The family of this 160-nucleotide sequence from Lachnospiraceae bacterium 28-4 is "glmS glucosamine-6-phosphate activated ribozyme aptamer". A search with the family's covariance model found it, with a score of 79 bits. Rfam classes the family as a riboswitch. From the family's description: This entry contains a glucosamine-6-phosphate activated ribozyme that is found in the mRNA for GlmS. GlmS is an enzyme that uses fructose-6-phosphate and glutamine to generate glucosamine-6-phosphate. The ribozyme catalyses self cleavage of the glmS mRNA that is thought to regulate GlmS activity. The organism belongs to Lachnospiraceae, within Bacteria.
[Rfam]
RNA sequence: GCUUCCCAUUUAGCGCCAUGUACCUGUCGGAAGGAGACAGGUUGACGAGGAGAAAGGUGAUCGAAAAUUCGGCGGAUGCCUUUCCGCACGGCUUCCGGUGCGUGAUAUGACGGAGAAAUAUGCGGGCGACUGCAAAACAAAGACGGCAUAACUUGGAAGA
Numbered sequence: 001g002c003u004u005c006c007c008a009u010u011u012a013g014c015g016c017c018a019u020g021u022a023c024c025u026g027u028c029g030g031a032a033g034g035a036g037a038c039a040g041g042u043u044g045a046c047g048a049g050g051a052g053a054a055a056g057g058u059g060a061u062c063g064a065a066a067a068u069u070c071g072g073c074g075g076a077u078g079c080c081u082u083u084c085c086g087c088a089c090g091g092c093u094u095c096c097g098g099u100g101c102g103u104g105a106u107a108u109g110a111c112g113g114a115g116a117a118a119u120a121u122g123c124g125g126g127c128g129a130c131u132g133c134a135a136a137a138c139a140a141a142g143a144c145g146g147c148a149u150a151a152c153u154u155g156g157a158a159g160a
Stems, first nucleotide, its partner, number of pairs: 022042007052084005061072004085102005106150004111145002121134005